[Rfam]
Rfam assigns this 77-nucleotide sequence from Alligator sinensis to the family "Mammalian CPEB3 ribozyme".
A search with the family's covariance model found it, with a score of 38 bits.
RNA sequence: CUACUUCUUCUUGGCCACAGCAAAAGCAUUCACAUUGUGGCCCCUGUCAGGUUCCAAUGAAAUUGGUGGAUUCUACU
Number, nucleotide and partner (000 for none) at each position: 001c000002u000003a000004c000005u000006u000007c000008u000009u000010c000011u000012u000013g042014g041015c040016c039017a000018c000019a077020g076021c000022a074023a000024a072025a071026g038027c037028a036029u000030u000031c000032a000033c000034a000035u000036u028037g027038u026039g016040g015041c014042c013043c000044c000045u000046g000047u000048c065049a064050g063051g000052u061053u060054c059055c000056a000057a000058u000059g054060a053061a052062a000063u050064u049065g048066g000067u000068g000069g000070a000071u025072u024073c000074u022075a000076c020077u019

The mammalian CPEB3 ribozyme is a self cleaving RNA located in the second intron of the CPEB3 gene which belongs to a family of genes regulating messenger RNA polyadenylation.